A member of the RNA family "MIR1514 microRNA precursor family" from Glycine max, 99 nucleotides long. The base pairs follow the family's consensus structure, which was predicted with RNAalifold. Gene Ontology terms of the family: RISC complex and miRNA-mediated post-transcriptional gene silencing. NCBI's taxonomy places the organism under Eukaryota, Viridiplantae, fabids, Fabales, Glycine subgen. Soja.
RNA sequence: CUUUGCUAUUUUCAUUUUUAAAAUAGGCAUUGGGGUCCCUUCUUGUUCCUCCUUUUCCUUUCCUAUCCCAAUGCCUAUUUUAAAAUGAAAACAACGAUA
Numbered sequence: 001c002u003u004u005g006c007u008a009u010u011u012u013c014a015u016u017u018u019u020a021a022a023a024u025a026g027g028c029a030u031u032g033g034g035g036u037c038c039c040u041u042c043u044u045g046u047u048c049c050u051c052c053u054u055u056u057c058c059u060u061u062c063c064u065a066u067c068c069c070a071a072u073g074c075c076u077a078u079u080u081u082a083a084a085a086u087g088a089a090a091a092c093a094a095c096g097a098u099a
Base pairs, nucleotide, nucleotide: 009091010090011089012088013087014086015085016084017083018082020081021080022079023078024077025076026075027074028073029072030071031070032069033068034067035066036065